[Rfam]
RNA sequence: UCCGGUGAUGAUUAUAUCCAUAUAAUUUGAGGUGUAGUAGAACCAAGCCCCUGUUUACAGGGAGAACCUACUUGGGAAAACUGCAUUUCAUAUGAAAUUAAUGGAUAUUGCUGAGGU
Numbered sequence: 001u002c003c004g005g006u007g008a009u010g011a012u013u014a015u016a017u018c019c020a021u022a023u024a025a026u027u028u029g030a031g032g033u034g035u036a037g038u039a040g041a042a043c044c045a046a047g048c049c050c051c052u053g054u055u056u057a058c059a060g061g062g063a064g065a066a067c068c069u070a071c072u073u074g075g076g077a078a079a080a081c082u083g084c085a086u087u088u089c090a091u092a093u094g095a096a097a098u099u100a101a102u103g104g105a106u107a108u109u110g111c112u113g114a115g116g117u
Stems, first nucleotide, its partner, number of pairs: 002116002049062005
This 117-nucleotide RNA sequence from Nelumbo nucifera belongs to the Rfam family "Small nucleolar RNA Z278". The family's RNA type in Rfam is C/D-box small nucleolar RNA. A search with the family's covariance model found it, with a score of 54 bits. The source organism's lineage runs through Eukaryota, Viridiplantae, Streptophyta, Proteales and Nelumbo. The base pairs follow the family's consensus structure, which was predicted with PFOLD.